A member of the RNA family "Pseudomon-Rho RNA" from Pseudomonas jinjuensis, 98 nucleotides long. Rfam classes the family as a cis-regulatory element. NCBI's taxonomy places the organism under Bacteria, Pseudomonadati, Gammaproteobacteria, Pseudomonadales, Pseudomonas. It scores 58 bits against the family's covariance model. The family's consensus secondary structure is taken from published work.
[Rfam]
RNA sequence: UUCGCUCGCGCAACGUUGAUUACGUUGUCCCCUGCAAGCCGUCGCCACGCACUCCAAAUCGAAUUCCAAGCGAUCCUGUCCGUCUUCUGCGGCACGGC
Numbered sequence: 001u002u003c004g005c006u007c008g009c010g011c012a013a014c015g016u017u018g019a020u021u022a023c024g025u026u027g028u029c030c031c032c033u034g035c036a037a038g039c040c041g042u043c044g045c046c047a048c049g050c051a052c053u054c055c056a057a058a059u060c061g062a063a064u065u066c067c068a069a070g071c072g073a074u075c076c077u078g079u080c081c082g083u084c085u086u087c088u089g090c091g092g093c094a095c096g097g098c
Base pairs, nucleotide, nucleotide: 010028011027012026013025014024015023038098039097040096041095044093045092046091070083071082072080073079074078